The record is a 66-nucleotide sequence from Apium graveolens, which matches "Small nucleolar RNA U49" in Rfam. The family is grouped with related families in Rfam's "SNORD49 clan". The match comes from Rfam's covariance-model search (70 bits). The family has 5 seed sequences and 340 matches in Rfam 15.1.
RNA sequence: UACCGAUGAGGAAGCUUACCCAAAAGAUAGGAAGUGCCGUAUGACACUUUAAACAGCAGCGUUUAG
Numbered sequence: 001u002a003c004c005g006a007u008g009a010g011g012a013a014g015c016u017u018a019c020c021c022a023a024a025a026g027a028u029a030g031g032a033a034g035u036g037c038c039g040u041a042u043g044a045c046a047c048u049u050u051a052a053a054c055a056g057c058a059g060c061g062u063u064u065a066g
Stems, first nucleotide, its partner, number of pairs: 014060002031050006